[Rfam]
RNA sequence: CACCCGGGGCAGCACGCGUAUAGCGUCGGCUGGGACUGGAACAGGGGCUGGCCAUUGCGUGCCCCGGGGGAGCGCUGGGGGCCGGAUGUCGGGGGACGUCCGGCCCCCAUUUU
Numbered sequence: 001c002a003c004c005c006g007g008g009g010c011a012g013c014a015c016g017c018g019u020a021u022a023g024c025g026u027c028g029g030c031u032g033g034g035a036c037u038g039g040a041a042c043a044g045g046g047g048c049u050g051g052c053c054a055u056u057g058c059g060u061g062c063c064c065c066g067g068g069g070g071a072g073c074g075c076u077g078g079g080g081g082c083c084g085g086a087u088g089u090c091g092g093g094g095g096a097c098g099u100c101c102g103g104c105c106c107c108c109a110u111u112u113u
Base pairs, nucleotide, nucleotide: 003068004067005066006065007064008063009062010061011060012058013057014026015025016024017023028053029052030051031050032049033048036045037044077108078107079106080105081104082103083102084101085100086099087098088097089096090095